Rfam assigns this 116-nucleotide RNA from Candidatus Palibaumannia cicadellinicola to the family "Ribosomal S15 leader". The E. coli Ribosomal S15 gene 5' UTR can form two alternative structures. One that is a series of three hairpins, The other includes a pseudoknot. This structure causes translational regulation of the S15 protein. On this family, see Benard et al., Biochimie 1996: "Pseudoknot and translational control in the expression of the S15 ribosomal protein". Gene Ontology term of the family: regulation of translation, ncRNA-mediated.

RNA sequence: CUUUAUGGCUAAAUUAGAGAUUGAUGCCUAUCUAUUUUAUAUUAAUUUGGAUUAUUAUAAUGUCUCUAAGUUUUAAUACGAAAGCCAAAAUAAUUGCUGAUUUUGGCAGAAAUAAU
Numbered sequence: 001c002u003u004u005a006u007g008g009c010u011a012a013a014u015u016a017g018a019g020a021u022u023g024a025u026g027c028c029u030a031u032c033u034a035u036u037u038u039a040u041a042u043u044a045a046u047u048u049g050g051a052u053u054a055u056u057a058u059a060a061u062g063u064c065u066c067u068a069a070g071u072u073u074u075a076a077u078a079c080g081a082a083a084g085c086c087a088a089a090a091u092a093a094u095u096g097c098u099g100a101u102u103u104u105g106g107c108a109g110a111a112a113u114a115a116u
Stems, first nucleotide, its partner, number of pairs: 008025001010023003046070006